A member of the RNA family "mir-290 microRNA precursor family" from Pipistrellus kuhlii, 67 nucleotides long. Clan: mir-290 clan. The base pairs follow the family's consensus structure, which was predicted with RNAalifold. The literature on the family includes a 2003 paper in Dev Cell by Houbaviy et al., "Embryonic stem cell-specific MicroRNAs". The match comes from Rfam's covariance-model search (53 bits).

RNA sequence: GGGGACCUCAAACCGUGGCGGCACUUUGCCCUCGGCACAGAAAGUGCCCCCACAGUUUGAGUGCCCC
Numbered sequence: 001g002g003g004g005a006c007c008u009c010a011a012a013c014c015g016u017g018g019c020g021g022c023a024c025u026u027u028g029c030c031c032u033c034g035g036c037a038c039a040g041a042a043a044g045u046g047c048c049c050c051c052a053c054a055g056u057u058u059g060a061g062u063g064c065c066c067c
Stems, first nucleotide, its partner, number of pairs: 004064001007061006015053004020048008